Acido-Lenti-1 RNA: a 46-nucleotide RNA sequence from Verrucomicrobia bacterium LW23. The match comes from Rfam's covariance-model search (44 bits). The source organism's lineage runs through Bacteria, Pseudomonadati and Verrucomicrobiota. The base pairs follow the family's consensus structure, which is taken from published work.
RNA sequence: CCCAGGGCUUACGCCCUGGGCUAUAGGCUUUCGCGCCGGUGGCGCG
Numbered sequence: 001c002c003c004a005g006g007g008c009u010u011a012c013g014c015c016c017u018g019g020g021c022u023a024u025a026g027g028c029u030u031u032c033g034c035g036c037c038g039g040u041g042g043c044g045c046g
Base pairs, nucleotide, nucleotide: 001020002019003018004017005016006015007014008013033045034044035043036042037041
Dot-bracket structure: ((((((((....))))))))............(((((...))))).